[Rfam]
RNA: Group II catalytic intron D1-D4-3
RNA sequence: UUCAGAGCGAUCUGAGCACUGAAGGAAGCGAAACUGCAAAGACCUGUACUGACGCACAGGAAGUGCAUACAGAGGCAGGAAAAGGAGGGGUUAGCAAUCACAGCUUUGCAAAGCCUGAAAUCAGCAUCCUUUUCCUGUAGAUGCAACAGGAAUAGGUCGAAGGACGAUGUU
Dot-bracket structure: ((((((....))))))...........(..(.....(...(((((((.(((............(((((......(((.(((((((..((((..((((........))))...))))...........))))))).)))..))))).))).).))))))....)....)..)
Numbered sequence: 001u002u003c004a005g006a007g008c009g010a011u012c013u014g015a016g017c018a019c020u021g022a023a024g025g026a027a028g029c030g031a032a033a034c035u036g037c038a039a040a041g042a043c044c045u046g047u048a049c050u051g052a053c054g055c056a057c058a059g060g061a062a063g064u065g066c067a068u069a070c071a072g073a074g075g076c077a078g079g080a081a082a083a084g085g086a087g088g089g090g091u092u093a094g095c096a097a098u099c100a101c102a103g104c105u106u107u108g109c110a111a112a113g114c115c116u117g118a119a120a121u122c123a124g125c126a127u128c129c130u131u132u133u134c135c136u137g138u139a140g141a142u143g144c145a146a147c148a149g150g151a152a153u154a155g156g157u158c159g160a161a162g163g164a165c166g167a168u169g170u171u
Stems, first nucleotide, its partner, number of pairs: 001016006028171001031168001037163001041158006047151001049149003064145005075138003079134007088116004094109004